The family of this 76-nucleotide RNA sequence from Sphingomonas montanisoli is "Makes More Granules Regulator RNA (mmgR)". The base pairs follow the family's consensus structure. The source organism's lineage runs through Bacteria, Pseudomonadati, Pseudomonadota, Alphaproteobacteria and Sphingomonas.
RNA sequence: AGAAGCUGCCUUUCAGGCAUCCUCUCCUAAAACUUUUCAGGCCGGUCCUUCGGGAUCGGCCCUUUUUUUUGUUUUU
Numbered sequence: 001a002g003a004a005g006c007u008g009c010c011u012u013u014c015a016g017g018c019a020u021c022c023u024c025u026c027c028u029a030a031a032a033c034u035u036u037u038c039a040g041g042c043c044g045g046u047c048c049u050u051c052g053g054g055a056u057c058g059g060c061c062c063u064u065u066u067u068u069u070u071g072u073u074u075u076u
Stems, first nucleotide, its partner, number of pairs: 008018004040061009